The family of this 83-nucleotide RNA sequence from Dothistroma septosporum is "Small nucleolar RNA R38". It scores 49 bits against the family's covariance model. snoR38 is a C/D box small nucleolar RNA conserved across yeast, human, Arabidopsis and rice. For this family Rfam cites "Antisense snoRNAs: a family of nucleolar RNAs with long complementarities to rRNA" (Bachellerie et al., Trends Biochem Sci, 1995). The family's RNA type in Rfam is C/D-box small nucleolar RNA. Gene Ontology terms of the family: nucleolus and RNA processing.
[Rfam]
RNA sequence: UUUGCAAUGAUGAAAGAUCAAUAUAAACAGUUAUCCCUGUCUGAAGACUAUUGUUGAGAACGUAUUCACACUCUGAUUGCAAU
Numbered sequence: 001u002u003u004g005c006a007a008u009g010a011u012g013a014a015a016g017a018u019c020a021a022u023a024u025a026a027a028c029a030g031u032u033a034u035c036c037c038u039g040u041c042u043g044a045a046g047a048c049u050a051u052u053g054u055u056g057a058g059a060a061c062g063u064a065u066u067c068a069c070a071c072u073c074u075g076a077u078u079g080c081a082a083u
Stems, first nucleotide, its partner, number of pairs: 002082006